[Rfam]
RNA sequence: CAUGAUGACGCUCCGGAAUCGCUGCACUGCCGUGAUGAAAGAUCAUUUGAACCCUUUGCCGGCUGAUGACCGU
Dot-bracket structure: .(((.(..............................................................).)))
Source information
Shown here is a 73-nucleotide RNA sequence from Echinops telfairi, a member of the family "Small nucleolar RNA MBII-202". Gene Ontology terms of the family: nucleolus and RNA processing. Taxonomically the source falls in Echinops (Eukaryota, Tetrapoda, Afrotheria, Afrosoricida).